[Rfam]
RNA sequence: CAAUUCUAUUCGUAAGAAUAAAGAGAAGCAGAUCUAUUCUAUAUCCGAUAAGUAUCAAUACGCAAUGGGG
Numbered sequence: 001c002a003a004u005u006c007u008a009u010u011c012g013u014a015a016g017a018a019u020a021a022a023g024a025g026a027a028g029c030a031g032a033u034c035u036a037u038u039c040u041a042u043a044u045c046c047g048a049u050a051a052g053u054a055u056c057a058a059u060a061c062g063c064a065a066u067g068g069g070g
Base pairs, nucleotide, nucleotide: 004023005022007020008019009018010017011016044069045068046067052061053060054059
This 70-nucleotide sequence belongs to the Rfam family "Plastid-clpP 5UTR RNA". The literature on the family includes a 2023 paper in Plant Commun by Richter et al., "Retrograde signaling in plants: A critical review focusing on the GUN pathway and beyond". About the family: Plastid clpP is a non-coding RNA (ncRNA) recognised in plastids. It was found in the prime untranslated region (5UTR) of a protease complex subunit (clpP) in plastids, suggesting a posible cis-regulatory function. It is annotated as a cis-regulatory element.